RNA: RpsF leader
Organism: Avibacterium volantium
RNA sequence: GCUACAUCAUCAUUUUCGUUCCUUGCUUCCGCAAGAUUGGUAGCUGGUCUUACAGUCGGAGGCUGAUUAACCCGUAAGGAGCAGUAAUG
Numbered sequence: 001g002c003u004a005c006a007u008c009a010u011c012a013u014u015u016u017c018g019u020u021c022c023u024u025g026c027u028u029c030c031g032c033a034a035g036a037u038u039g040g041u042a043g044c045u046g047g048u049c050u051u052a053c054a055g056u057c058g059g060a061g062g063c064u065g066a067u068u069a070a071c072c073c074g075u076a077a078g079g080a081g082c083a084g085u086a087a088u089g
Stems, first nucleotide, its partner, number of pairs: 018082007025063006